Shown here is a 119-nucleotide sequence from Lawsonibacter faecis, a member of the family "THF (Tetrahydrofolate) riboswitch aptamer". Pairs were carried over by alignment from the consensus structure, which is taken from published work. Tetrahydrofolate (THF) riboswitch was first reported for Ames et al. as an RNA motif in 5' untranslated (5'-UTR)regions of folate transport and biosynthesis genes in Firmicutes genomes.
[Rfam]
RNA sequence: GGCAGAGUAGGAAUGCGCGUGCAGUGUCCCGGAAGGGACCCAGUGCCGGCGGGACGGGGAGUUGUCCGCCGGACGAAAAGUACCGAGUACUUGCAGUGCGUGUUCCGCAUCCCGCUGCC
Number, nucleotide and partner (000 for none) at each position: 001g119002g118003c117004a116005g115006a000007g000008u000009a000010g106011g105012a104013a103014u102015g101016c100017g099018c098019g097020u095021g094022c093023a000024g000025u000026g000027u000028c000029c000030c000031g000032g000033a000034a000035g000036g000037g000038a000039c000040c000041c000042a000043g074044u073045g000046c072047c071048g070049g069050c068051g067052g066053g065054a000055c000056g000057g112058g111059g110060a000061g108062u000063u000064g000065u053066c052067c051068g050069c049070c048071g047072g046073a044074c043075g000076a000077a000078a092079a091080g090081u089082a000083c000084c000085g000086a000087g000088u000089a081090c080091u079092u078093g022094c021095a020096g000097u019098g018099c017100g016101u015102g014103u013104u012105c011106c010107g000108c061109a000110u059111c058112c057113c000114g000115c005116u004117g003118c002119c001